Notes:
Shown here is a 99-nucleotide RNA from Lachnospiraceae bacterium TWA4, a member of the family "SAM riboswitch aptamer (S box leader)". The base pairs follow the family's consensus structure, which is taken from published work.

[Rfam]
RNA sequence: CUCUUAUUCCGAGUGAUGGAGAUAUAAAGGAUCGAUGAAAUCACGGCAACCCCUUUUAAGGAAGGUGCCAACCUGAAGCGAAGAAUCGAACAAUAAGAG
Numbered sequence: 001c002u003c004u005u006a007u008u009c010c011g012a013g014u015g016a017u018g019g020a021g022a023u024a025u026a027a028a029g030g031a032u033c034g035a036u037g038a039a040a041u042c043a044c045g046g047c048a049a050c051c052c053c054u055u056u057u058a059a060g061g062a063a064g065g066u067g068c069c070a071a072c073c074u075g076a077a078g079c080g081a082a083g084a085a086u087c088g089a090a091c092a093a094u095a096a097g098a099g
Base pairs, nucleotide, nucleotide: 001099002098003097004096005095006094007093008092013044014043015042016041017040021033022032023031030074045069046068047067048066050065051064052061053060054059079088080087081086
Dot-bracket structure: ((((((((....(((((...(((......[)))......)))))((((.(((((....)))..))))))....]....(((....)))...))))))))